transfer-messenger RNA: a 360-nucleotide sequence from Cupriavidus metallidurans.
[Rfam]
RNA sequence: GGGGCCGACCUGGUUUCGACGUGGGUUACAAAGCAGUGGAGGGCAUACCGAGGACCCGUCACCUCGUUAAUCAAUGGGAAUGCAAUAACUGCUAACGACGAACGUUACGCACUGGCAGCCUAAGGGCCGCCGUCCUCGCACUGGCUCGCUGACGGGCUAGGGUUCGCAAGAACCAGCGAGGUCAUUUACGUCAGAUAAGCUUCGGGAGUGUCACGGGCCCGAGGACGAAAACCUAGUGACUCGCCGUCGUAGAGCGUGUUCGUCCGCGAUGCGCCGGUUAAAUCAAAUGACAGAACUAAGUAUGUAGAACUCUCUGUGGAGGGCUUGCGGACGCGGGUUCGAUUCCCGCCGGCUCCACCA
Numbered sequence: 001g002g003g004g005c006c007g008a009c010c011u012g013g014u015u016u017c018g019a020c021g022u023g024g025g026u027u028a029c030a031a032a033g034c035a036g037u038g039g040a041g042g043g044c045a046u047a048c049c050g051a052g053g054a055c056c057c058g059u060c061a062c063c064u065c066g067u068u069a070a071u072c073a074a075u076g077g078g079a080a081u082g083c084a085a086u087a088a089c090u091g092c093u094a095a096c097g098a099c100g101a102a103c104g105u106u107a108c109g110c111a112c113u114g115g116c117a118g119c120c121u122a123a124g125g126g127c128c129g130c131c132g133u134c135c136u137c138g139c140a141c142u143g144g145c146u147c148g149c150u151g152a153c154g155g156g157c158u159a160g161g162g163u164u165c166g167c168a169a170g171a172a173c174c175a176g177c178g179a180g181g182u183c184a185u186u187u188a189c190g191u192c193a194g195a196u197a198a199g200c201u202u203c204g205g206g207a208g209u210g211u212c213a214c215g216g217g218c219c220c221g222a223g224g225a226c227g228a229a230a231a232c233c234u235a236g237u238g239a240c241u242c243g244c245c246g247u248c249g250u251a252g253a254g255c256g257u258g259u260u261c262g263u264c265c266g267c268g269a270u271g272c273g274c275c276g277g278u279u280a281a282a283u284c285a286a287a288u289g290a291c292a293g294a295a296c297u298a299a300g301u302a303u304g305u306a307g308a309a310c311u312c313u314c315u316g317u318g319g320a321g322g323g324c325u326u327g328c329g330g331a332c333g334c335g336g337g338u339u340c341g342a343u344u345c346c347c348g349c350c351g352g353c354u355c356c357a358c359c360a
Stems, first nucleotide, its partner, number of pairs: 001356007020329008033317004038313004044304005049066005055078005113132004118127003134181006142159004149194006200224007209238002244277003248273004254267003258296004262291003333349005
Rfam describes the family as follows. Bacterial tmRNA, also known as 10Sa RNA or SsrA, is named for its dual tRNA and mRNA-like properties. The base pairs follow the family's consensus structure, which is taken from published work. Rfam's curators put it in the seed alignment. Taxonomically the source falls in Cupriavidus metallidurans (Bacteria, Pseudomonadati, Burkholderiales, Cupriavidus).